[Rfam]
Nucleotides: 083
Stems, first nucleotide, its partner, number of pairs: 014050003018047003025041005059082004065078003
Number, partner (000 for none) and nucleotide at each position: 001000u002000g003000a004000u005000a006000g007000c008000u009000a010000u011000g012000a013000a014050g015049c016048g017000u018047g019046a020045g021000g022000u023000u024000g025041c026040u027039g028038c029037g030000a031000g032000g033000g034000u035000u036000g037029c038028g039027c040026a041025g042000g043000u044000g045020u046019u047018c048016c049015g050014u051000g052000g053000a054000g055000c056000g057000a058000a059082u060081g061080u062079c063000a064000a065078g066077u067076u068000u069000g070000a071000a072000a073000a074000c075000u076067g077066g078065c079062g080061a081060c082059a083000a
Shown here is an 83-nucleotide sequence from Pseudocoprococcus catus, a member of the family "S10-Clostridia ribosomal protein leader". Rfam classes the family as a cis-regulatory leader. A search with the family's covariance model found it, with a score of 86 bits. The source organism's lineage runs through Bacteria, Bacillati, Bacillota, Clostridia and Pseudocoprococcus.